[Rfam]
RNA sequence: AAUCUAGGUGUCGAUAGUUGCUAUAUAAUAUCUCGAUAUGGGAGAUAGUUUCUACACUUCACCGUAAAUGAAGUACUAUGGCAGACUUCUCACCGUCG
Numbered sequence: 001a002a003u004c005u006a007g008g009u010g011u012c013g014a015u016a017g018u019u020g021c022u023a024u025a026u027a028a029u030a031u032c033u034c035g036a037u038a039u040g041g042g043a044g045a046u047a048g049u050u051u052c053u054a055c056a057c058u059u060c061a062c063c064g065u066a067a068a069u070g071a072a073g074u075a076c077u078a079u080g081g082c083a084g085a086c087u088u089c090u091c092a093c094c095g096u097c098g
Base pairs, nucleotide, nucleotide: 018084019083020082021081022080023079024078025077029047030046031045032044033043034042056074057073058072059071060070061069